Small nucleolar RNA SNORA22: a 130-nucleotide RNA sequence from Nannospalax galili.
ACA22 is a member of the H/ACA class of snoRNA that guide the sites of modification of uridines to pseudouridines.
The match comes from Rfam's covariance-model search (99 bits).
Pairs were carried over by alignment from the consensus structure, which was predicted with RNAfold.
Rfam 15.1 lists 883 matches to the family in 606 species.
Rfam classes the family as an H/ACA-box small nucleolar RNA.
RNA sequence: UUGCACAGUAAACACCCAAGUGUGCUUUAUAAUUUGCUUGGCCUGGACUCUGGUAAAGUCUGUUCUUUCCCUCUGCAUUGAAAGGAAUAUUGACUAUCCUUUUAAAUGUAUUCAGAAAAUCAGCACAUCA
Number, nucleotide and partner (000 for none) at each position: 001u000002u000003g000004c053005a000006c052007a051008g050009u000010a049011a000012a000013c046014a000015c000016c041017c040018a039019a038020g037021u000022g035023u000024g033025c000026u031027u000028u000029a000030u000031a026032a000033u024034u000035u022036g000037c020038u019039u018040g017041g016042c000043c000044u000045g000046g013047a000048c000049u010050c008051u007052g006053g004054u000055a061056a000057a000058g000059u000060c000061u055062g000063u000064u000065c000066u000067u000068u000069c000070c000071c000072u116073c115074u114075g113076c108077a107078u106079u105080g103081a102082a101083a100084g099085g098086a097087a000088u000089a000090u000091u000092g000093a000094c000095u000096a000097u086098c085099c084100u083101u082102u081103u080104a000105a079106a078107u077108g076109u000110a000111u000112u000113c075114a074115g073116a072117a000118a000119a000120u000121c000122a000123g000124c000125a000126c000127a000128u000129c000130a000